[Rfam]
RNA sequence: AUGUACCACUCGUCCAUUGCGGUUCUGAACGCGCCAUCCACGCCUAUCUAACGACUGCUCGCUACGUUUUGUUUGGU
Numbered sequence: 001a002u003g004u005a006c007c008a009c010u011c012g013u014c015c016a017u018u019g020c021g022g023u024u025c026u027g028a029a030c031g032c033g034c035c036a037u038c039c040a041c042g043c044c045u046a047u048c049u050a051a052c053g054a055c056u057g058c059u060c061g062c063u064a065c066g067u068u069u070u071g072u073u074u075g076g077u
Stems, first nucleotide, its partner, number of pairs: 002016002005013002021035003025031001048075001050073005
Xanthomonas sRNA sX9: a 77-nucleotide RNA from Xanthomonas campestris. It is annotated as a small RNA. The literature on the family includes a 2011 paper in Nucleic Acids Res by Schmidtke et al., "Genome-wide transcriptome analysis of the plant pathogen Xanthomonas identifies sRNAs with putative virulence functions". The organism belongs to Xanthomonas campestris pv. campestris, within Bacteria.